[Rfam]
Annotation: A member of the RNA family "mir-454 microRNA precursor family" from Emberiza fucata, 101 nucleotides long. Taxonomically the source falls in Emberiza (Eukaryota, Chordata, Euteleostomi, Passeriformes). It scores 88 bits against the family's covariance model. The base pairs follow the family's consensus structure, which was predicted with RNAalifold.
RNA sequence: AUCCAGCUUCCUUAAGGAUGAGACCCUAUCAAUAUUGCCUCUGCUUUUGUGAUCAGGGUAGUAGUGCAAUAUUGCUUAUAGGGUCUUUUCUUUUGAGGGUU
Number, nucleotide and partner (000 for none) at each position: 001a000002u000003c000004c000005a000006g000007c000008u000009u000010c000011c000012u000013u000014a000015a000016g000017g000018a000019u000020g087021a086022g085023a084024c083025c082026c081027u080028a079029u078030c074031a073032a072033u071034a070035u069036u068037g067038c066039c000040u000041c064042u063043g062044c061045u060046u000047u000048u000049g000050u000051g000052a000053u000054c000055a000056g000057g000058g000059u000060a045061g044062u043063a042064g041065u000066g038067c037068a036069a035070u034071a033072u032073u031074g030075c000076u000077u000078a029079u028080a027081g026082g025083g024084u023085c022086u021087u020088u000089u000090c000091u000092u000093u000094u000095g000096a000097g000098g000099g000100u000101u000
Rfam 15.1 lists 696 matches to the family in 601 species. For this family Rfam cites "The developmental miRNA profiles of zebrafish as determined by small RNA cloning" (Chen et al., Genes Dev, 2005).